[Rfam]
RNA: permuted transfer-messenger RNA
RNA sequence: GGCUGUAUGAAGCGAAGAGGAGGCGUUGCGGACGCGGGUUCGAUUCCCGCCAGCUCCACCAUCCACGCAUUGGCGACAGUGCCGGGAUGAAGGGGCUGCAUCGGUUUCGACGUGGCGAGCAAUCCAAGUGGACAGCCCGGGAGGCGACCGACGUUAACGGCGCAAAACCACAAUCGCCAGCAAUGACAGCGAUUAUCGGGUCCUGAAAGCGGCCUGA
Numbered sequence: 001g002g003c004u005g006u007a008u009g010a011a012g013c014g015a016a017g018a019g020g021a022g023g024c025g026u027u028g029c030g031g032a033c034g035c036g037g038g039u040u041c042g043a044u045u046c047c048c049g050c051c052a053g054c055u056c057c058a059c060c061a062u063c064c065a066c067g068c069a070u071u072g073g074c075g076a077c078a079g080u081g082c083c084g085g086g087a088u089g090a091a092g093g094g095g096c097u098g099c100a101u102c103g104g105u106u107u108c109g110a111c112g113u114g115g116c117g118a119g120c121a122a123u124c125c126a127a128g129u130g131g132a133c134a135g136c137c138c139g140g141g142a143g144g145c146g147a148c149c150g151a152c153g154u155u156a157a158c159g160g161c162g163c164a165a166a167a168c169c170a171c172a173a174u175c176g177c178c179a180g181c182a183a184u185g186a187c188a189g190c191g192a193u194u195a196u197c198g199g200g201u202c203c204u205g206a207a208a209g210c211g212g213c214c215u216g217a
Stems, first nucleotide, its partner, number of pairs: 001137005014125001024117003028113003034050005051098007138153002
Dot-bracket structure: (((((........(.........(((.(((...(((((.......)))))(((((((..................................)))))))............))).))).......).......)))))((............))................................................................